Shown here is a 92-nucleotide RNA from Flintibacter hominis, a member of the family "ZMP/ZTP riboswitch aptamer (pfl RNA motif)". The family's consensus secondary structure is taken from published work. Its family is annotated with one-carbon metabolic process and regulation of purine nucleotide biosynthetic process in the Gene Ontology.

[Rfam]
RNA sequence: UCCAAGCCCUGCGACUGACGGAAGUGGAGUGACCACGUGGAACAGGGCCCGGCGUGUGAAACGCCAUAUUGCCGACCGUCUGGGCGCACUAU
Numbered sequence: 001u002c003c004a005a006g007c008c009c010u011g012c013g014a015c016u017g018a019c020g021g022a023a024g025u026g027g028a029g030u031g032a033c034c035a036c037g038u039g040g041a042a043c044a045g046g047g048c049c050c051g052g053c054g055u056g057u058g059a060a061a062c063g064c065c066a067u068a069u070u071g072c073c074g075a076c077c078g079u080c081u082g083g084g085c086g087c088a089c090u091a092u
Base pairs, nucleotide, nucleotide: 003051006048007047008046009045010044011043015039017080018079019078020077021076024036025035026034027033070086071085072084073083
Taxonomically the source falls in Flintibacter (Bacteria, Bacillati, Bacillota, Eubacteriales).